A member of the RNA family "Small nucleolar RNA R38" from Amphimedon queenslandica, 71 nucleotides long. A search with the family's covariance model found it, with a score of 46 bits.
[Rfam]
RNA sequence: AAGUGUCUAUGAUGUUCAGUUAUCCCUGUCUGAAAUACAGUGUAUGACAACAUAAAUAUACUGAGACACUU
Numbered sequence: 001a002a003g004u005g006u007c008u009a010u011g012a013u014g015u016u017c018a019g020u021u022a023u024c025c026c027u028g029u030c031u032g033a034a035a036u037a038c039a040g041u042g043u044a045u046g047a048c049a050a051c052a053u054a055a056a057u058a059u060a061c062u063g064a065g066a067c068a069c070u071u
Stems, first nucleotide, its partner, number of pairs: 001071007

snoR38 is a C/D box small nucleolar RNA conserved across yeast, human, Arabidopsis and rice. Lineage of the source: Eukaryota > Opisthokonta > Porifera > Heteroscleromorpha > Amphimedon.